The record is a 129-nucleotide sequence from Gracilimonas sediminicola, which matches "SAM riboswitch aptamer (S box leader)" in Rfam. The source organism's lineage runs through Bacteria, Balneolota, Balneolia, Balneolales and Gracilimonas.

[Rfam]
RNA sequence: UUCUCAUUAAGAAAGGUGGAGGGAUCAGGUCCUUUGAAGCCUUGGCAACCGUCCCGACAAUUUAUUUGUCAGGAAAAGGUGCUACGUCCUGUCUGUCACAUAAAAUUUAUGUGAUGGAAAAGAUGAGUU
Numbered sequence: 001u002u003c004u005c006a007u008u009a010a011g012a013a014a015g016g017u018g019g020a021g022g023g024a025u026c027a028g029g030u031c032c033u034u035u036g037a038a039g040c041c042u043u044g045g046c047a048a049c050c051g052u053c054c055c056g057a058c059a060a061u062u063u064a065u066u067u068g069u070c071a072g073g074a075a076a077a078g079g080u081g082c083u084a085c086g087u088c089c090u091g092u093c094u095g096u097c098a099c100a101u102a103a104a105a106u107u108u109a110u111g112u113g114a115u116g117g118a119a120a121a122g123a124u125g126a127g128u129u
Base pairs, nucleotide, nucleotide: 003127004126005125006124007123008122013043014042015041016040017039021032022031023030026091027090028089029088044083045082046081047080049079050078052074053073054072087121092118093117094116095115096114097113098112099111100110101109102108